[Rfam]
RNA sequence: UUUGAGGGGAAUGUUGUCUGGCCCGUGGUCUCUCUCUCUCUCUCUCUCUCUCUUUCUCUUUCUGAGGAGUUACUGAGAUCUCGGACCAGGCUUCAUUCCCCCUAAG
Numbered sequence: 001u002u003u004g005a006g007g008g009g010a011a012u013g014u015u016g017u018c019u020g021g022c023c024c025g026u027g028g029u030c031u032c033u034c035u036c037u038c039u040c041u042c043u044c045u046c047u048c049u050c051u052c053u054u055u056c057u058c059u060u061u062c063u064g065a066g067g068a069g070u071u072a073c074u075g076a077g078a079u080c081u082c083g084g085a086c087c088a089g090g091c092u093u094c095a096u097u098c099c100c101c102c103u104a105a106g
Base pairs, nucleotide, nucleotide: 001106002105003104004103006101007100008099009098010097011096012095013094016091017090018089019088020087021086024083025082
RNA: mir-166 microRNA precursor family
Organism: Rhynchospora breviuscula